[Rfam]
RNA sequence: UUAGGUGUUCUUCAUUUUCUUCUGGAAUUUUUUUGGGAUUCUUGUUGUUGAAGGUUGAUGGAGAUGAUAUGAAGAUAAAUAAAAGGAGAAG
Numbered sequence: 001u002u003a004g005g006u007g008u009u010c011u012u013c014a015u016u017u018u019c020u021u022c023u024g025g026a027a028u029u030u031u032u033u034u035g036g037g038a039u040u041c042u043u044g045u046u047g048u049u050g051a052a053g054g055u056u057g058a059u060g061g062a063g064a065u066g067a068u069a070u071g072a073a074g075a076u077a078a079a080u081a082a083a084a085g086g087a088g089a090a091g
Stems, first nucleotide, its partner, number of pairs: 006084001008082002011079002014076006037056004042051002
Background: A member of the RNA family "MIR5298 microRNA precursor family" from Medicago truncatula, 91 nucleotides long. It scores 70 bits against the family's covariance model. The base pairs follow the family's consensus structure, which was predicted with RNAalifold.